[Rfam]
RNA sequence: GUUUUAUCUAUGAUGGUGUUCUUUUUAAACCUUUAAGGAGAAAGAAUACUUGAUGUUGCUUGUAAAAU
Numbered sequence: 001g002u003u004u005u006a007u008c009u010a011u012g013a014u015g016g017u018g019u020u021c022u023u024u025u026u027a028a029a030c031c032u033u034u035a036a037g038g039a040g041a042a043a044g045a046a047u048a049c050u051u052g053a054u055g056u057u058g059c060u061u062g063u064a065a066a067a068u
Base pairs, nucleotide, nucleotide: 001068002067003066004065005064015050016049017048018047019046020045021044022043023042024041030038031037032036
Shown here is a 68-nucleotide RNA sequence from Sarcophilus harrisii, a member of the family "Selenocysteine insertion sequence 1". From the family's description: The incorporation of selenocysteine into a protein sequence is directed by an in-frame UGA codon (usually a stop codon) within the coding region of the mRNA. Selenoprotein mRNAs contain a conserved secondary structure in the 3' UTR that is required for the distinction of UGA stop from UGA selenocysteine. The base pairs follow the family's consensus structure, which is taken from published work. NCBI's taxonomy places the organism under Eukaryota, Deuterostomia, Teleostomi, Sarcopterygii, Sarcophilus.